The record is a 64-nucleotide sequence from Spiroplasma taiwanense, which matches "2dG-I riboswitch aptamer (M. florum)" in Rfam. Its family is annotated with deoxyribonucleoside binding and regulation of DNA-templated transcription, termination in the Gene Ontology.
[Rfam]
RNA sequence: ACUUGUAUAAGUCAACAUAUUGGGUUGGUGUUUCUACCUUUUGACCUAUCAGAAGUCUAUAAGU
Numbered sequence: 001a002c003u004u005g006u007a008u009a010a011g012u013c014a015a016c017a018u019a020u021u022g023g024g025u026u027g028g029u030g031u032u033u034c035u036a037c038c039u040u041u042u043g044a045c046c047u048a049u050c051a052g053a054a055g056u057c058u059a060u061a062a063g064u
Base pairs, nucleotide, nucleotide: 001064002063003062004061005060006059007058008036011029012028013027014026015025016024022046023045030037038055039054040053041052042051043050044049